[Rfam]
RNA sequence: UGGUCAUUAUCAAGGCUUUUAGAAAGAAGGUUCUCAUCUUCUGUGGACUUGACCAUAAAAUAAUUUUCCACUAGGUUUUCUAUCUGUUACCUUGUUAGCAAUCAAACUGUUGGGAACAUUA
Numbered sequence: 001u002g003g004u005c006a007u008u009a010u011c012a013a014g015g016c017u018u019u020u021a022g023a024a025a026g027a028a029g030g031u032u033c034u035c036a037u038c039u040u041c042u043g044u045g046g047a048c049u050u051g052a053c054c055a056u057a058a059a060a061u062a063a064u065u066u067u068c069c070a071c072u073a074g075g076u077u078u079u080c081u082a083u084c085u086g087u088u089a090c091c092u093u094g095u096u097a098g099c100a101a102u103c104a105a106a107c108u109g110u111u112g113g114g115a116a117c118a119u120u121a
Stems, first nucleotide, its partner, number of pairs: 003053004010046003026041004067114004074107001076105002085100003

This 121-nucleotide RNA sequence from Cavia porcellus belongs to the Rfam family "Small nucleolar RNA SNORA32". The family has 9 seed sequences and 615 matches in Rfam 15.1. By type it is an H/ACA-box small nucleolar RNA. Rfam's curators write: ACA32 is a member of the H/ACA class of snoRNA that guide the sites of modification of uridines to pseudouridines. The organism belongs to Cavia, within Eukaryota. Rfam links the family to the GO terms nucleolus and RNA processing.